[Rfam]
Nucleotides: 073
Base pairs, nucleotide, nucleotide: 001072002071003070004069005068006067007066010025011024012023013022027043028042029041030040031039049065050064051063052062053061
Number, partner (000 for none) and nucleotide at each position: 001072g002071g003070g004069g005068g006067u007066g008000u009000a010025g011024c012023u013022c014000a015000g016000u017000u018000g019000g020000g021000a022013g023012a024011g025010c026000a027043c028042u029041u030040g031039c032000u033000u034000u035000g036000c037000a038000c039031g040030c041029a042028a043027g044000g045000g046000g047000u048000c049065g050064c051063a052062g053061g054000u055000u056000c057000a058000a059000c060000u061053c062052c063051u064050g065049u066007c067006a068005u069004c070003u071002c072001c073000a

The family of this 73-nucleotide RNA sequence from Halobacteriovorax marinus is "tRNA".
It scores 67 bits against the family's covariance model.
Taxonomically the source falls in Halobacteriovorax marinus (Bacteria, Bacteriovoracales, Halobacteriovoraceae, Halobacteriovorax).
Rfam describes the family as follows. Transfer RNA (tRNA) molecules are approximately 80 nucleotides in length.